[Rfam]
RNA sequence: AAGGGGAGUGCAGGAUCCUGGGCUGUGUCCCCUGGCGCCCUGGGCUCCGGGGCCUGCGCGGCUGGAAUCUCGCUCCCAGGGCGCACAGCCCCCU
Numbered sequence: 001a002a003g004g005g006g007a008g009u010g011c012a013g014g015a016u017c018c019u020g021g022g023c024u025g026u027g028u029c030c031c032c033u034g035g036c037g038c039c040c041u042g043g044g045c046u047c048c049g050g051g052g053c054c055u056g057c058g059c060g061g062c063u064g065g066a067a068u069c070u071c072g073c074u075c076c077c078a079g080g081g082c083g084c085a086c087a088g089c090c091c092c093c094u
Base pairs, nucleotide, nucleotide: 001094003092004091005090006089010086013082017080018079020076021075022074024072025071027069028066029065030064031061032060035059036058037057038056042054044053045052046051
Dot-bracket structure: (.((((...(..(...((.(((.((.((((((..((((...(.(((....)))).))))))..)))..).)).)))..)).)...)..)))).)
mir-8799 microRNA precursor family: a 94-nucleotide RNA from Canis lupus. Taxonomically the source falls in Canis lupus (Eukaryota, Deuterostomia, Mammalia, Eutheria). The family has 7 seed sequences and 20,638 matches in Rfam 15.1. It scores 60 bits against the family's covariance model. Rfam links the family to the GO terms miRNA-mediated post-transcriptional gene silencing and RISC complex.